RNA sequence: CGCGGGACGACCCGCGUCGUCGUGAUCAUUCCGGGACGGCCCGG
Numbered sequence: 001c002g003c004g005g006g007a008c009g010a011c012c013c014g015c016g017u018c019g020u021c022g023u024g025a026u027c028a029u030u031c032c033g034g035g036a037c038g039g040c041c042c043g044g
Stems, first nucleotide, its partner, number of pairs: 001016006031044005
A member of the RNA family "Guanidine-II riboswitch aptamer (mini-ykkC)" from Martelella alba, 44 nucleotides long. From the family's description: Simpler in structure and has fewer highly conserved nucleotide positions than the ykkC-yxkD leader. The family's consensus secondary structure is taken from published work. Taxonomically the source falls in Martelella (Bacteria, Pseudomonadota, Hyphomicrobiales, Aurantimonadaceae).